The record is an 81-nucleotide RNA from Sesamum indicum, which matches "small nucleolar RNA snoR126" in Rfam. Lineage of the source: Eukaryota > Tracheophyta > Magnoliopsida > lamiids > Sesamum. On this family, see Chen and Wu, Nucleic Acids Res 2009: "Mining small RNA sequencing data: a new approach to identify small nucleolar RNAs in Arabidopsis". The base pairs follow the family's consensus structure, which was predicted with RNAalifold. Gene Ontology terms of the family: RNA processing and nucleolus.
[Rfam]
RNA sequence: AGGCGAUGAAGACAUCAAUCAUUUCUCGAUGCUGAGUUACGGACCUUUCAUUUUGAUGACAUUUAUGCGUGUCUGAGCCUC
Numbered sequence: 001a002g003g004c005g006a007u008g009a010a011g012a013c014a015u016c017a018a019u020c021a022u023u024u025c026u027c028g029a030u031g032c033u034g035a036g037u038u039a040c041g042g043a044c045c046u047u048u049c050a051u052u053u054u055g056a057u058g059a060c061a062u063u064u065a066u067g068c069g070u071g072u073c074u075g076a077g078c079c080u081c
Stems, first nucleotide, its partner, number of pairs: 001080004
Dot-bracket structure: ((((........................................................................)))).